[Rfam]
RNA sequence: GUUUCUUGCUGAACCCCACCUCCUCCCGGGGUUUCUGGCAAACGCGGCGGCACUGAUCCUCCUCCCCAGUGCCGCCGCAGCUU
Numbered sequence: 001g002u003u004u005c006u007u008g009c010u011g012a013a014c015c016c017c018a019c020c021u022c023c024u025c026c027c028g029g030g031g032u033u034u035c036u037g038g039c040a041a042a043c044g045c046g047g048c049g050g051c052a053c054u055g056a057u058c059c060u061c062c063u064c065c066c067c068a069g070u071g072c073c074g075c076c077g078c079a080g081c082u083u
Base pairs, nucleotide, nucleotide: 007037008036011034012033013032014031015030016029017028045077046076047075048074049073050072051071052070053069054068
RNA: Conserved CCUCCUCCC motif stress-induced RNA 1